[Rfam]
RNA sequence: UGCAAGUAUUUUACUAUUAAAAAGAAAUUGCUUUUUGUACAGAUAAUGUAUUAAUUA
Numbered sequence: 001u002g003c004a005a006g007u008a009u010u011u012u013a014c015u016a017u018u019a020a021a022a023a024g025a026a027a028u029u030g031c032u033u034u035u036u037g038u039a040c041a042g043a044u045a046a047u048g049u050a051u052u053a054a055u056u057a
Base pairs, nucleotide, nucleotide: 018037019036020035021034022033023032024031

Rfam assigns this 57-nucleotide RNA from Protea cynaroides to the family "Plastid-rps18 3UTR RNA". Rfam 15.1 lists 1,462 matches to the family in 409 species. By type it is a cis-regulatory element. The family's consensus secondary structure was predicted with LocARNA. It scores 65 bits against the family's covariance model. Plastid rps18 is a non-coding RNA (ncRNA) present in plastids. It was identified as a short stem-loop motif in the 3 prime untranslate region (3UTR) of rps18 gene. On this family, see Richter et al., Plant Commun 2023: "Retrograde signaling in plants: A critical review focusing on the GUN pathway and beyond".